[Rfam]
RNA: Small nucleolar RNA SNORA5
RNA sequence: UGCAGCCCAGUCAAAUUCGGUCCCUGUCCCUCAGUGUCGGGGACCGGCCACCGGCUGCCACAGCAACCUCCGUGCUCCGUGUGUCCCGUGUCCCUGCUGGGGCACCUGGGGACACGGAUCCCA
Numbered sequence: 001u002g003c004a005g006c007c008c009a010g011u012c013a014a015a016u017u018c019g020g021u022c023c024c025u026g027u028c029c030c031u032c033a034g035u036g037u038c039g040g041g042g043a044c045c046g047g048c049c050a051c052c053g054g055c056u057g058c059c060a061c062a063g064c065a066a067c068c069u070c071c072g073u074g075c076u077c078c079g080u081g082u083g084u085c086c087c088g089u090g091u092c093c094c095u096g097c098u099g100g101g102g103c104a105c106c107u108g109g110g111g112a113c114a115c116g117g118a119u120c121c122c123a
Base pairs, nucleotide, nucleotide: 002058003057004056005055018046019045020044021043022042023041024040025039026038028036072115073114074113076111077110084101085100086099088097